[Rfam]
RNA sequence: GCAGUUGGCUGGGCGGCCGCGUGCACGCACGAGGAACGUCCGGGCUCCACAGGGAAACGGUGGUGGGUAACGCCCACUCGGAGUGAUCCGCAGGAAAGUGCAACAGAAAGCAAACCGCCCUCGCAUCUGCCCUUGUGGCUGGAUGUGAAGGUAAGGGUGAAAGGGUGAGGUAAGAGCUCACCGCGGGCUAGGUAACUAGGCCGGCACGGUAAACCCCACCGGGAGCAAGACCGAGCAGCGCGCUAUGAGUGUCCCGCUCGCGCGCGGGUUGGUUGCUUGAACCCGCCGGUAACGACGGGUCUAGAUAGAUGGUCGCCACCGCCUUGGCGGUACAGAACCCGGCGUACAGGCUGACUGCCAGG
Numbered sequence: 001g002c003a004g005u006u007g008g009c010u011g012g013g014c015g016g017c018c019g020c021g022u023g024c025a026c027g028c029a030c031g032a033g034g035a036a037c038g039u040c041c042g043g044g045c046u047c048c049a050c051a052g053g054g055a056a057a058c059g060g061u062g063g064u065g066g067g068u069a070a071c072g073c074c075c076a077c078u079c080g081g082a083g084u085g086a087u088c089c090g091c092a093g094g095a096a097a098g099u100g101c102a103a104c105a106g107a108a109a110g111c112a113a114a115c116c117g118c119c120c121u122c123g124c125a126u127c128u129g130c131c132c133u134u135g136u137g138g139c140u141g142g143a144u145g146u147g148a149a150g151g152u153a154a155g156g157g158u159g160a161a162a163g164g165g166u167g168a169g170g171u172a173a174g175a176g177c178u179c180a181c182c183g184c185g186g187g188c189u190a191g192g193u194a195a196c197u198a199g200g201c202c203g204g205c206a207c208g209g210u211a212a213a214c215c216c217c218a219c220c221g222g223g224a225g226c227a228a229g230a231c232c233g234a235g236c237a238g239c240g241c242g243c244u245a246u247g248a249g250u251g252u253c254c255c256g257c258u259c260g261c262g263c264g265c266g267g268g269u270u271g272g273u274u275g276c277u278u279g280a281a282c283c284c285g286c287c288g289g290u291a292a293c294g295a296c297g298g299g300u301c302u303a304g305a306u307a308g309a310u311g312g313u314c315g316c317c318a319c320c321g322c323c324u325u326g327g328c329g330g331u332a333c334a335g336a337a338c339c340c341g342g343c344g345u346a347c348a349g350g351c352u353g354a355c356u357g358c359c360a361g362g
Stems, first nucleotide, its partner, number of pairs: 001358010011347001012317007020031004036345003040342005045225004053255002056252001058221005063077005078092001079090004093216002098214002100210002115156002117152003121148009164182006183205001184203003188199004229274004238265006247259004281300005287294002
The record is a 362-nucleotide RNA sequence from Trueperella bialowiezensis, which matches "Bacterial RNase P class A" in Rfam. On this family, see Frank and Pace, Annu Rev Biochem 1998: "Ribonuclease P: unity and diversity in a tRNA processing ribozyme". Taxonomically the source falls in Trueperella (Bacteria, Bacillati, Actinomycetota, Actinomycetales). Its family is annotated with tRNA processing, dimeric ribonuclease P complex and ribonuclease P activity in the Gene Ontology. About the family: Ribonuclease P (RNase P) is a ubiquitous endoribonuclease, found in archaea, bacteria and eukarya as well as chloroplasts and mitochondria.